[Rfam]
RNA sequence: GGUGUGGGGAAUGUAGUCUGGCUCAAGGCCACUAAUAAACUUGAAAACGAUGAGUUUAAUUGGCAGAUCAUGAUCAGUCGUUUCUCGGACCAGGCUUCAUUCCCCUCACU
Numbered sequence: 001g002g003u004g005u006g007g008g009g010a011a012u013g014u015a016g017u018c019u020g021g022c023u024c025a026a027g028g029c030c031a032c033u034a035a036u037a038a039a040c041u042u043g044a045a046a047a048c049g050a051u052g053a054g055u056u057u058a059a060u061u062g063g064c065a066g067a068u069c070a071u072g073a074u075c076a077g078u079c080g081u082u083u084c085u086c087g088g089a090c091c092a093g094g095c096u097u098c099a100u101u102c103c104c105c106u107c108a109c110u
Stems, first nucleotide, its partner, number of pairs: 001110004006105008016095006024087001026085001

A member of the RNA family "mir-166 microRNA precursor family" from Carya illinoinensis, 110 nucleotides long. The literature on the family includes a 2001 paper in Cell by Ambros, "microRNAs: tiny regulators with great potential". The source organism's lineage runs through Eukaryota, Tracheophyta, Spermatophyta, fabids and Carya. The family's consensus secondary structure was predicted with PFOLD. About the family: This family represents the plant microRNA (miRNA) precursor mir-166.